[Rfam]
RNA sequence: CCUUCCGUCAUUGGGGAGUAGCCAGCCUUGGUUUCCACCAGGGUGCUUGCGUCAACAUACUUAGUGCUCACCACUAUGGCGUAAGCGGUUGUUGCAGCAACAUUGCACACCAGGCGAGACCUUUGGCCAUCAUGCGUUGCCUUUUGCCGGGCUCGACGCACC
Number, nucleotide and partner (000 for none) at each position: 001c000002c000003u000004u000005c000006c000007g000008u000009c000010a000011u000012u000013g000014g000015g000016g000017a000018g000019u000020a000021g000022c000023c000024a000025g000026c043027c042028u041029u000030g000031g000032u000033u000034u000035c000036c000037a000038c000039c000040a000041g028042g027043g026044u000045g086046c085047u084048u083049g082050c081051g080052u079053c078054a077055a000056c000057a000058u000059a000060c000061u000062u076063a075064g074065u073066g072067c000068u000069c000070a000071c000072c066073a065074c064075u063076a062077u054078g053079g052080c051081g050082u049083a048084a047085g046086c045087g162088g161089u160090u158091g157092u156093u155094g000095c000096a000097g000098c000099a000100a000101c000102a000103u000104u000105g000106c000107a000108c000109a000110c000111c000112a000113g000114g000115c000116g000117a000118g000119a000120c000121c000122u000123u000124u000125g000126g000127c000128c000129a000130u000131c000132a000133u000134g000135c000136g000137u000138u000139g000140c000141c000142u000143u000144u000145u000146g000147c000148c000149g000150g000151g000152c000153u000154c000155g093156a092157c091158g090159c000160a089161c088162c087
The family of this 162-nucleotide RNA from Candidimonas sp. SYP-B2681 is "Manganese Mn2+ riboswitch aptamer (yybP-ykoY)".
This RNA was originally discovered in E. coli during a large scale screen and was named SraF. The family was later found to exist upstream of related families of protein genes in many bacteria, including the the yybP and ykoK genes in B. subtilis.